Background: Rfam assigns this 93-nucleotide sequence from Theobroma cacao to the family "Small nucleolar RNA snoR8a". A reference for the family is Brown et al. (2001), "Multiple snoRNA gene clusters from Arabidopsis", RNA.

[Rfam]
RNA sequence: AAGUUAGCAAUGAUUAUAAAAAUAAUUCUUUGUUUUGACUUACUUAACUUGGGUAUGACAAACCUCCUAUUGCAACUAUAGAAUCUGAGUUAC
Numbered sequence: 001a002a003g004u005u006a007g008c009a010a011u012g013a014u015u016a017u018a019a020a021a022a023u024a025a026u027u028c029u030u031u032g033u034u035u036u037g038a039c040u041u042a043c044u045u046a047a048c049u050u051g052g053g054u055a056u057g058a059c060a061a062a063c064c065u066c067c068u069a070u071u072g073c074a075a076c077u078a079u080a081g082a083a084u085c086u087g088a089g090u091u092a093c
Stems, first nucleotide, its partner, number of pairs: 003093002006091002